[Rfam]
RNA: Histidine operon leader
Organism: Chimaeribacter arupi
RNA sequence: CCAUCAUCACCAUCACCCUGACUAGUCUUUCAGGCGAUGUGUGCUGGAAGACGUUUAACGAAUCUUCCAGUGGCGGCAGAACGCGACAGAAAAGCCCCCGGAAGAUUCUUCCGGGGGCUUUUUUUU
Numbered sequence: 001c002c003a004u005c006a007u008c009a010c011c012a013u014c015a016c017c018c019u020g021a022c023u024a025g026u027c028u029u030u031c032a033g034g035c036g037a038u039g040u041g042u043g044c045u046g047g048a049a050g051a052c053g054u055u056u057a058a059c060g061a062a063u064c065u066u067c068c069a070g071u072g073g074c075g076g077c078a079g080a081a082c083g084c085g086a087c088a089g090a091a092a093a094g095c096c097c098c099c100g101g102a103a104g105a106u107u108c109u110u111c112c113g114g115g116g117g118c119u120u121u122u123u124u125u126u
Stems, first nucleotide, its partner, number of pairs: 008043003011039004017034005044070008089123016